[Rfam]
RNA sequence: UCCUUUGGAACGCUGAAUUCCUUCUGUAGAGUCAAGCAGAAGGGAACGGGGGACCCAAUUUUUGGGGUGAAUCCCCUUCUGAAUUGAUUUUUGAGUAAGAAGGGGUAGGGUCACCUCACGACCCGAACCCGUCAGCUAACCUCGUAAGCGUGGUAGAGGGAGGUA
Numbered sequence: 001u002c003c004u005u006u007g008g009a010a011c012g013c014u015g016a017a018u019u020c021c022u023u024c025u026g027u028a029g030a031g032u033c034a035a036g037c038a039g040a041a042g043g044g045a046a047c048g049g050g051g052g053a054c055c056c057a058a059u060u061u062u063u064g065g066g067g068u069g070a071a072u073c074c075c076c077u078u079c080u081g082a083a084u085u086g087a088u089u090u091u092u093g094a095g096u097a098a099g100a101a102g103g104g105g106u107a108g109g110g111u112c113a114c115c116u117c118a119c120g121a122c123c124c125g126a127a128c129c130c131g132u133c134a135g136c137u138a139a140c141c142u143c144g145u146a147a148g149c150g151u152g153g154u155a156g157a158g159g160g161a162g163g164u165a
Stems, first nucleotide, its partner, number of pairs: 011150004018045010046145006056064002065130003073105008108124004
Rfam assigns this 165-nucleotide RNA from Thermovenabulum gondwanense to the family "c-di-AMP riboswitch aptamer (ydaO/yuaA leader)". The source organism's lineage runs through Bacteria, Bacillati, Clostridia, Thermosediminibacteraceae and Thermovenabulum. The match comes from Rfam's covariance-model search (101 bits).